[Rfam]
RNA sequence: GCCUCUGUCUGAUAUGUUUGAUAUAUUAGGUUGUUAAUUCAUUCAACUAUAUAUCAAACAUAUCGCUACAGUGUC
Number, nucleotide and partner (000 for none) at each position: 001g000002c000003c000004u000005c071006u070007g069008u068009c000010u000011g064012a063013u062014a061015u060016g059017u058018u057019u056020g055021a054022u053023a052024u051025a050026u000027u000028a000029g048030g047031u046032u045033g044034u000035u000036a000037a000038u000039u000040c000041a000042u000043u000044c033045a032046a031047c030048u029049a000050u025051a024052u023053a022054u021055c020056a019057a018058a017059c016060a015061u014062a013063u012064c011065g000066c000067u000068a008069c007070a006071g005072u000073g000074u000075c000

A member of the RNA family "mir-190 microRNA precursor family" from Eleutherodactylus coqui, 75 nucleotides long. Gene Ontology terms of the family: miRNA-mediated post-transcriptional gene silencing and RISC complex. A reference for the family is Kloosterman et al. (2006), "Cloning and expression of new microRNAs from zebrafish", Nucleic Acids Res. Lineage of the source: Eukaryota > Bilateria > Craniata > Gnathostomata > Eleutherodactylus. It scores 82 bits against the family's covariance model.